Small nucleolar RNA SNORD53/SNORD92: an 83-nucleotide RNA from Carassius auratus. Rfam links the family to the GO terms RNA processing and nucleolus. The pairing is the family consensus, mapped onto this sequence. The literature on the family includes a 1996 paper in Cell by Kiss-Laszlo et al., "Site-specific ribose methylation of preribosomal RNA: a novel function for small nucleolar RNAs". Rfam 15.1 lists 2,250 matches to the family in 671 species.

RNA sequence: UGCACAUGAUGAUAUUAGAGAAUGGUUUCACUUUCAUGAACAGAUUUCAUGUGAUGAUACACUUCUCUUGGCUGUCUGAUGCG
Numbered sequence: 001u002g003c004a005c006a007u008g009a010u011g012a013u014a015u016u017a018g019a020g021a022a023u024g025g026u027u028u029c030a031c032u033u034u035c036a037u038g039a040a041c042a043g044a045u046u047u048c049a050u051g052u053g054a055u056g057a058u059a060c061a062c063u064u065c066u067c068u069u070g071g072c073u074g075u076c077u078g079a080u081g082c083g
Stems, first nucleotide, its partner, number of pairs: 001083004